A member of the RNA family "SAM riboswitch aptamer (S box leader)" from Kurthia sp. 11kri321, 115 nucleotides long. Rfam links the family to the GO term regulation of gene expression. The organism belongs to Kurthia, within Bacteria. The SAM riboswitch is found upstream of a number of genes which code for proteins involved in methionine or cysteine biosynthesis in Gram-positive bacteria.
RNA sequence: CUCUUAUCAAGAGUAGCUGAGGGACUGGCCCUAUGAAGCUCGGCAACCUUCCAAUACAUCGGUAUUGUGAAAGGUGCUAAUUCCAGCAAGAUGACAAAAUCUUGAUAGAUAAGAG
Numbered sequence: 001c002u003c004u005u006a007u008c009a010a011g012a013g014u015a016g017c018u019g020a021g022g023g024a025c026u027g028g029c030c031c032u033a034u035g036a037a038g039c040u041c042g043g044c045a046a047c048c049u050u051c052c053a054a055u056a057c058a059u060c061g062g063u064a065u066u067g068u069g070a071a072a073g074g075u076g077c078u079a080a081u082u083c084c085a086g087c088a089a090g091a092u093g094a095c096a097a098a099a100u101c102u103u104g105a106u107a108g109a110u111a112a113g114a115g
Base pairs, nucleotide, nucleotide: 001115002114003113004112005111006110007109008108013041015040016039017038021031022030023029025086026085027084028083042078043077044076045075047074048073049070050069052067053066054065055064082107087104088103089102090101091100092099